[Rfam]
Small nucleolar RNA snR191: a 251-nucleotide RNA from Penicillium oxalicum. It is annotated as an H/ACA-box small nucleolar RNA. Its Rfam clan is "SNORA74 clan". A reference for the family is Badis et al. (2003), "A snoRNA that guides the two most conserved pseudouridine modifications within rRNA confers a growth advantage in yeast", RNA. Gene Ontology terms of the family: nucleolus and RNA processing. The organism belongs to Penicillium oxalicum, within Eukaryota.
RNA sequence: UUCCAUCGCUAAGUCAAGGCUUCUUCCUGCGACUUUUUGUCGUAUUUUUUCUUUCAAUGGAGGUCCGUCUGUUACAGCUUUGGUAGAUUGACAAUGUCCCGCACCAAACUUCUUUCUGAAGCGAGGUUGACUGGCCUUCGUCUUGAAGGCUAGUCGUAAGGGACAUACGUGUUUUGUUUAAGAGUUGAGUUCUACUUCUGCCUAUCUAUGGUGGCUUGAUAGUUGAACUCUUAGUAACAUCCCACACAUCA
Numbered sequence: 001u002u003c004c005a006u007c008g009c010u011a012a013g014u015c016a017a018g019g020c021u022u023c024u025u026c027c028u029g030c031g032a033c034u035u036u037u038u039g040u041c042g043u044a045u046u047u048u049u050u051c052u053u054u055c056a057a058u059g060g061a062g063g064u065c066c067g068u069c070u071g072u073u074a075c076a077g078c079u080u081u082g083g084u085a086g087a088u089u090g091a092c093a094a095u096g097u098c099c100c101g102c103a104c105c106a107a108a109c110u111u112c113u114u115u116c117u118g119a120a121g122c123g124a125g126g127u128u129g130a131c132u133g134g135c136c137u138u139c140g141u142c143u144u145g146a147a148g149g150c151u152a153g154u155c156g157u158a159a160g161g162g163a164c165a166u167a168c169g170u171g172u173u174u175u176g177u178u179u180a181a182g183a184g185u186u187g188a189g190u191u192c193u194a195c196u197u198c199u200g201c202c203u204a205u206c207u208a209u210g211g212u213g214g215c216u217u218g219a220u221a222g223u224u225g226a227a228c229u230c231u232u233a234g235u236a237a238c239a240u241c242c243c244a245c246a247c248a249u250c251a
Base pairs, nucleotide, nucleotide: 003083004082005081017070018069019068020067023063024062025061026060027059029043030042031041032040033039094166095165096164097163098162099161103127104126105125109121110120111119112118129155130154134150135149136148137147138146139145140144169245170244171243175239176238177237187230188229189228190227193225194224196222198214199213200212201211202210